A member of the RNA family "Small Nucleolar RNA SNORD64" from Diceros bicornis, 67 nucleotides long. From the family's description: The human snoRNA HBII-13 belongs to the C/D family of snoRNAs. NCBI's taxonomy places the organism under Eukaryota, Deuterostomia, Gnathostomata, Laurasiatheria, Diceros bicornis. Rfam links the family to the GO terms RNA processing and nucleolus.
RNA sequence: AGAUUUAUGAUGAGCUAUAUUUAAUGAGCAUGAUGAUGCAAAGCUCAAUGUCAGUACUCUGUAGUCC
Numbered sequence: 001a002g003a004u005u006u007a008u009g010a011u012g013a014g015c016u017a018u019a020u021u022u023a024a025u026g027a028g029c030a031u032g033a034u035g036a037u038g039c040a041a042a043g044c045u046c047a048a049u050g051u052c053a054g055u056a057c058u059c060u061g062u063a064g065u066c067c
Base pairs, nucleotide, nucleotide: 002066003065004064005063012059013058014057020053025047026046027045028044029043
Dot-bracket structure: .((((......(((.....(....(((((.............))))).....)...)))...)))).
A search with the family's covariance model found it, with a score of 70 bits. Its Rfam clan is "SNORD74 clan". The family's RNA type in Rfam is C/D-box small nucleolar RNA. For this family Rfam cites "The IC-SNURF-SNRPN transcript serves as a host for multiple small nucleolar RNA species and as an antisense RNA for UBE3A" (Runte et al., Hum Mol Genet, 2001).